This 76-nucleotide RNA sequence from Geotrypetes seraphini belongs to the Rfam family "mir-196 microRNA precursor family". Rfam links the family to the GO terms gene silencing by miRNA and RISC complex.
[Rfam]
RNA sequence: CUGGUGAUUUAGGUAGUUUCAUGUUGUUGGGGGCUGCACUUUUCACUCUACAACCAAAAACUGCCCGAAUUACUUC
Numbered sequence: 001c002u003g004g005u006g007a008u009u010u011a012g013g014u015a016g017u018u019u020c021a022u023g024u025u026g027u028u029g030g031g032g033g034c035u036g037c038a039c040u041u042u043u044c045a046c047u048c049u050a051c052a053a054c055c056a057a058a059a060a061c062u063g064c065c066c067g068a069a070u071u072a073c074u075u076c
Stems, first nucleotide, its partner, number of pairs: 003074008012065008023054005029048003
NCBI's taxonomy places the organism under Eukaryota, Gnathostomata, Sarcopterygii, Gymnophiona, Geotrypetes. Rfam 15.1 lists 1,813 matches to the family in 642 species. The family's consensus secondary structure was predicted with PFOLD. The match comes from Rfam's covariance-model search (70 bits). For this family Rfam cites "New microRNAs from mouse and human" (Lagos-Quintana et al., RNA, 2003).